[Rfam]
RNA: Alphaproteobacteria transfer-messenger RNA
Organism: Manganibacter manganicus
RNA sequence: GGUCUUCCAUUUUCAGGAGCGUGCUCUUAUAUUCGUCUCGUCGGCUUGACCGACUAUGGCGAUAAACAGACGAUGAAAUAAGCCGUUCGGACCCGGGGGCGGUACCCGGCGCCUCCACCAAAAGCCGCAGCGAUGCUGCGAUUUCUGAUGGGGGCGAAAUAGGAUCGACGAAGGUGUAAAGAUCGUACUUUUGCCCGGCAUUGUACCACCGUUAUCGGGCUAAACUUGUAGUUGCAAACGACAACUAUGCGGAAGCACGUCUCGCAGCGUAAGCUGUGCGAUCGCUUCAAAUUAAGCCCUAGUGGUUCGCACUUCUAGGCGGGGUCCGGAGGCACCUGGCAACAGAAGCCUCCACU
Dot-bracket structure: .......................................(((((.....)))))...(((((.......(((((........((..(((...(((((.......)))))(((((((.................................)))))))............))).)).......)))))....)))))(((..[.[..[[.))).....]].].]...................................................................................................[[[[..((((((]]]]..........))))))...